[Rfam]
RNA sequence: UCUUGGAGCCACGUGUGUACCAAGAGUCUGUCCACAGACAUUGCACCUGGCGCUGUUAGGCUAGAAUUGAAGUGUUUU
Numbered sequence: 001u002c003u004u005g006g007a008g009c010c011a012c013g014u015g016u017g018u019a020c021c022a023a024g025a026g027u028c029u030g031u032c033c034a035c036a037g038a039c040a041u042u043g044c045a046c047c048u049g050g051c052g053c054u055g056u057u058a059g060g061c062u063a064g065a066a067u068u069g070a071a072g073u074g075u076u077u078u
Stems, first nucleotide, its partner, number of pairs: 005056001007054003021050001023048002026039005
RNA: U1A polyadenylation inhibition element (PIE)
Organism: Cnephaeus nilssonii